[Rfam]
BsrF: a 106-nucleotide RNA sequence from Mesobacillus persicus. Taxonomically the source falls in Mesobacillus (Bacteria, Bacillota, Caryophanales, Bacillaceae). The match comes from Rfam's covariance-model search (102 bits). It is annotated as a small RNA. A reference for the family is Saito et al. (2008), "Novel small RNA-encoding genes in the intergenic regions of Bacillus subtilis", Gene.

RNA sequence: GCGAUGAGCUGAGUUGGAUAAGUCGGCAGACACUCCUUUUAGGAAAUGCACGAUGUGGCGUGCAGUCUGUCGCCCCAAUACGCAAAGACGCCUGCUUGCAGGCGUC
Numbered sequence: 001g002c003g004a005u006g007a008g009c010u011g012a013g014u015u016g017g018a019u020a021a022g023u024c025g026g027c028a029g030a031c032a033c034u035c036c037u038u039u040u041a042g043g044a045a046a047u048g049c050a051c052g053a054u055g056u057g058g059c060g061u062g063c064a065g066u067c068u069g070u071c072g073c074c075c076c077a078a079u080a081c082g083c084a085a086a087g088a089c090g091c092c093u094g095c096u097u098g099c100a101g102g103c104g105u106c
Stems, first nucleotide, its partner, number of pairs: 014078004024072008034043002047064002050061003087106008